Notes:
This 75-nucleotide sequence from Streptomyces scopuliridis belongs to the Rfam family "ASpks TB sRNA". The source organism's lineage runs through Bacteria, Bacillati, Actinomycetota, Kitasatosporales and Streptomyces scopuliridis. It scores 80 bits against the family's covariance model. The family's consensus secondary structure is taken from published work. Rfam classes the family as an antisense RNA. The literature on the family includes a 2009 paper in Mol Microbiol by Arnvig and Young, "Identification of small RNAs in Mycobacterium tuberculosis".
RNA sequence: CUUGAGCGAGCCGAGCCACAGCGGACGCUCGGGGUCGCGCUCCUGGCCGUAGGUGGCCAGCAGCGCCUGCGCCUC
Number, nucleotide and partner (000 for none) at each position: 001c000002u000003u000004g000005a000006g000007c000008g000009a000010g000011c000012c000013g000014a000015g000016c024017c023018a000019c000020a000021g000022c000023g017024g016025a000026c000027g000028c000029u000030c000031g000032g070033g000034g000035u000036c000037g000038c065039g064040c000041u000042c000043c060044u059045g058046g000047c056048c055049g054050u000051a000052g000053g000054u049055g048056g047057c000058c045059a044060g043061c000062a000063g000064c039065g038066c000067c000068u000069g000070c032071g000072c000073c000074u000075c000